[Rfam]
RNA sequence: CUCGUGCCCGUCAUUGGGGAGUAGCCUCUCUUCACCACGAAGAGGCUUGCGUCAACACACUUGCCGACCCGACAUGGCGCAAGCGGUUCCACGACUUGGCAAGACCUUUGACCACCCUACCUUCCGAGGCCGGCGAGGGGGCGUGGUCAUUCGUCAUGUCCGGCCCGGAAUCU
Number, nucleotide and partner (000 for none) at each position: 001c000002u000003c000004g000005u000006g000007c000008c000009c000010g000011u000012c000013a000014u000015u000016g000017g000018g000019g000020a000021g000022u000023a000024g000025c000026c000027u000028c000029u043030c042031u041032u000033c000034a000035c000036c000037a000038c000039g000040a000041a031042g030043a029044g000045g084046c083047u082048u081049g080050c079051g078052u077053c076054a075055a000056c000057a000058c000059a000060c000061u000062u074063g073064c000065c071066g070067a000068c000069c000070c066071g065072a000073c063074a062075u054076g053077g052078c051079g050080c049081a048082a047083g046084c045085g173086g172087u000088u169089c168090c000091a000092c000093g000094a000095c000096u000097u000098g000099g000100c000101a000102a000103g000104a000105c000106c000107u000108u000109u000110g000111a000112c000113c000114a000115c000116c000117c000118u000119a000120c000121c000122u000123u000124c000125c000126g000127a000128g000129g000130c000131c000132g000133g000134c000135g000136a000137g000138g000139g000140g000141g000142c000143g000144u000145g000146g000147u000148c000149a000150u000151u000152c000153g000154u000155c000156a000157u000158g000159u000160c000161c000162g000163g000164c000165c000166c000167g000168g089169a088170a000171u000172c086173u085
RNA: Manganese Mn2+ riboswitch aptamer (yybP-ykoY)